Annotation:
This 72-nucleotide sequence from Chelonoidis abingdonii belongs to the Rfam family "Small nucleolar RNA SNORD19". The family has 22 seed sequences and 1,431 matches in Rfam 15.1. The family's RNA type in Rfam is C/D-box small nucleolar RNA. The match comes from Rfam's covariance-model search (48 bits). For this family Rfam cites "RNomics: an experimental approach that identifies 201 candidates for novel, small, non-messenger RNAs in mouse" (Huttenhofer et al., EMBO J, 2001). The source organism's lineage runs through Eukaryota, Deuterostomia, Craniata, Vertebrata and Chelonoidis nigra species complex. Pairs were carried over by alignment from the consensus structure.
RNA sequence: GAGCUAUGAGGAAGAUACCAAUGUAGUCUGAGAUAGUACUGAUGACUAAGAUCCAACUCUGAGCUCGCUGUC
Numbered sequence: 001g002a003g004c005u006a007u008g009a010g011g012a013a014g015a016u017a018c019c020a021a022u023g024u025a026g027u028c029u030g031a032g033a034u035a036g037u038a039c040u041g042a043u044g045a046c047u048a049a050g051a052u053c054c055a056a057c058u059c060u061g062a063g064c065u066c067g068c069u070g071u072c
Base pairs, nucleotide, nucleotide: 001066002065003064004063